[Rfam]
RNA sequence: AUACUUACCGGGCCAAGGAGAUGCCAUGAACACGAAGGUGUUUUCCCAGGGCGGAGCCUAUUCGUCACACUCCGGAUGUGCUGACCCCUGCGAUUUCCCCGGAUUCGGAAAACUCGAUGGCGCAAUUAGUAGUAGCGGGAGACUGUGUUCGCACUCUCAGG
Numbered sequence: 001a002u003a004c005u006u007a008c009c010g011g012g013c014c015a016a017g018g019a020g021a022u023g024c025c026a027u028g029a030a031c032a033c034g035a036a037g038g039u040g041u042u043u044u045c046c047c048a049g050g051g052c053g054g055a056g057c058c059u060a061u062u063c064g065u066c067a068c069a070c071u072c073c074g075g076a077u078g079u080g081c082u083g084a085c086c087c088c089u090g091c092g093a094u095u096u097c098c099c100c101g102g103a104u105u106c107g108g109a110a111a112a113c114u115c116g117a118u119g120g121c122g123c124a125a126u127u128a129g130u131a132g133u134a135g136c137g138g139g140a141g142a143c144u145g146u147g148u149u150c151g152c153a154c155u156c157u158c159a160g161g
Stems, first nucleotide, its partner, number of pairs: 012121004017046005023041001025040003048089004053085001055082003059078005091116003094112001095110002098108002139158004144153003
RNA: U1 spliceosomal RNA